[Rfam]
RNA sequence: UCAGCCGAUGCGCCUAAUCCCGGGUGCCUCACUCGGGAGCCGGGGACCCACGGAACGUGGGGUGAAGGCACGACGUUCGUGUUCAACGCAGUGCCCGGGCGCCUCCAGCCCGAACCCGUCAGCUAACUCGGCAGGCAUAUGGAGAGGAGUG
Dot-bracket structure: ...........(((...(((((((((...)))))))))((((((....((.......))(((.....((((...................))))..((((.......))))...))).........)))))).)))...............
Background:
The family of this 151-nucleotide RNA from Sphaerimonospora thailandensis is "c-di-AMP riboswitch aptamer (ydaO/yuaA leader)".